[Rfam]
RNA sequence: UGAUGUACCCCAUUAAUUUGGGAUGCUAAAGUCAUUUAAUGCUGACCUCCACUGGGUGGAUUAAGGUCAAGGUAUGAAGUCCUAUUCGCUCCUGAUAGAAACAACUUCAUAUUGCUUAUAUAUGUGCUAGUGCACAUAUAUAAAUGCUCAUGCAAAACUGCAUGAAUGCCCCUAAGGGAUGC
Numbered sequence: 001u002g003a004u005g006u007a008c009c010c011c012a013u014u015a016a017u018u019u020g021g022g023a024u025g026c027u028a029a030a031g032u033c034a035u036u037u038a039a040u041g042c043u044g045a046c047c048u049c050c051a052c053u054g055g056g057u058g059g060a061u062u063a064a065g066g067u068c069a070a071g072g073u074a075u076g077a078a079g080u081c082c083u084a085u086u087c088g089c090u091c092c093u094g095a096u097a098g099a100a101a102c103a104a105c106u107u108c109a110u111a112u113u114g115c116u117u118a119u120a121u122a123u124g125u126g127c128u129a130g131u132g133c134a135c136a137u138a139u140a141u142a143a144a145u146g147c148u149c150a151u152g153c154a155a156a157a158c159u160g161c162a163u164g165a166a167u168g169c170c171c172c173u174a175a176g177g178g179a180u181g182c
Stems, first nucleotide, its partner, number of pairs: 009022004027038004043069006049059004071113010082098005116143012148165007170178003